[Rfam]
RNA sequence: AGGGCAGUAUCAUUGCUGAACUGCACCUAUAAAAAUACUCAACAACUGCAUAGUUCUGCCUUGAUCUUAAAUCGACAGGGACGGAGAA
Dot-bracket structure: ((((((((.((......))))))).)))...........................((((((((.((.......))))))).)))....
pan motif: an 88-nucleotide sequence from Planococcus sp. PAMC 21323. A search with the family's covariance model found it, with a score of 60 bits. The family's consensus secondary structure is taken from published work.